The record is a 163-nucleotide sequence from Kineothrix alysoides, which matches "glmS glucosamine-6-phosphate activated ribozyme aptamer" in Rfam. A search with the family's covariance model found it, with a score of 72 bits. From the family's description: This entry contains a glucosamine-6-phosphate activated ribozyme that is found in the mRNA for GlmS. GlmS is an enzyme that uses fructose-6-phosphate and glutamine to generate glucosamine-6-phosphate. It is annotated as a riboswitch.
RNA sequence: UUUUCCCAUCUAGCGCCAUGCACCUGUCCUGAGCGAAAAGGCAGGUUAACGAGGGAGGAAGGUUAUCGAAAUUUCGGCGGAUACCUUCCCGUACUCCUCCGGUGCGAGAUAUACCGGCAAAUAUGCGGGCAACUGCAAAACAAAGACGGUAUAACGGAGGGGC
Number, nucleotide and partner (000 for none) at each position: 001u000002u000003u000004u000005c000006c000007c000008a000009u000010c000011u000012a000013g000014c000015g000016c000017c000018a000019u000020g000021c000022a046023c045024c044025u043026g042027u041028c040029c000030u038031g000032a000033g000034c000035g000036a000037a000038a030039a000040g028041g027042c026043a025044g024045g023046u022047u000048a000049a000050c000051g000052a000053g000054g000055g000056a000057g089058g088059a087060a086061g085062g000063u000064u000065a000066u077067c076068g075069a074070a000071a000072u000073u000074u069075c068076g067077g066078c000079g000080g000081a000082u000083a000084c000085c061086u060087u059088c058089c057090c106091g105092u104093a103094c102095u101096c000097c000098u000099c000100c000101g095102g094103u093104g092105c091106g090107a000108g000109a000110u153111a152112u151113a150114c149115c148116g147117g000118c000119a000120a000121a000122u000123a000124u137125g136126c135127g134128g133129g000130c000131a000132a000133c128134u127135g126136c125137a124138a000139a000140a000141c000142a000143a000144a000145g000146a000147c116148g115149g114150u113151a112152u111153a110154a000155c000156g000157g000158a000159g000160g000161g000162g000163c000